[Rfam]
RNA sequence: AAAAAGGGGGGGGGGGGCCCCCCCCCGGGGCCCCCCCCCCCCCCCCUUUUUUUAAAAGUGGGGGGGGGGGGGGGUUAAAAAAAUUUUUUUUUUCCCCAAAAUUUUUUAAAAAAAAUUUCCCCGGGUUUAAUUUUUUACUAGGAGAUAU
Numbered sequence: 001a002a003a004a005a006g007g008g009g010g011g012g013g014g015g016g017g018c019c020c021c022c023c024c025c026c027g028g029g030g031c032c033c034c035c036c037c038c039c040c041c042c043c044c045c046c047u048u049u050u051u052u053u054a055a056a057a058g059u060g061g062g063g064g065g066g067g068g069g070g071g072g073g074g075u076u077a078a079a080a081a082a083a084u085u086u087u088u089u090u091u092u093u094c095c096c097c098a099a100a101a102u103u104u105u106u107u108a109a110a111a112a113a114a115a116u117u118u119c120c121c122c123g124g125g126u127u128u129a130a131u132u133u134u135u136u137a138c139u140a141g142g143a144g145a146u147a148u
Stems, first nucleotide, its partner, number of pairs: 008097005013037005038066007046058004067092007115146004121142002124139002127137001129135002

This 148-nucleotide RNA sequence from Holothuria leucospilota belongs to the Rfam family "U11 spliceosomal RNA". The source organism's lineage runs through Eukaryota, Deuterostomia, Echinozoa, Aspidochirotacea and Holothuria. Its family is annotated with pre-mRNA 5'-splice site binding, mRNA 5'-splice site recognition and U11 snRNP in the Gene Ontology.